[Rfam]
RNA sequence: UUGAGCUUUUCAGAAUUUAUUUAUUUUUCCUAUGAUUGUUUCUAUUGUUUUUCUGUAGGAUUGAAAAGUGAGAACCUAGAAAAUAGGCUCCCCUCGCUAUCCAGUACAGAUACUUCUUACUCUGCAUUGGACGUUGGGGAGCUACAUUG
Numbered sequence: 001u002u003g004a005g006c007u008u009u010u011c012a013g014a015a016u017u018u019a020u021u022u023a024u025u026u027u028u029c030c031u032a033u034g035a036u037u038g039u040u041u042c043u044a045u046u047g048u049u050u051u052u053c054u055g056u057a058g059g060a061u062u063g064a065a066a067a068g069u070g071a072g073a074a075c076c077u078a079g080a081a082a083a084u085a086g087g088c089u090c091c092c093c094u095c096g097c098u099a100u101c102c103a104g105u106a107c108a109g110a111u112a113c114u115u116c117u118u119a120c121u122c123u124g125c126a127u128u129g130g131a132c133g134u135u136g137g138g139g140a141g142c143u144a145c146a147u148u149g
Base pairs, nucleotide, nucleotide: 001079002078003076008073009072010071011070012069016066017065028060029059030058031057032056033055038051087142088141089140090139091138092137093136095133096132100131101130102129103128104127109122110121
Rfam assigns this 149-nucleotide RNA from Dendrobium catenatum to the family "Small nucleolar RNA snoR136".
Rfam classes the family as an H/ACA-box small nucleolar RNA.
Its family is annotated with RNA processing and nucleolus in the Gene Ontology.
Lineage of the source: Eukaryota > Viridiplantae > Magnoliopsida > Liliopsida > Dendrobium.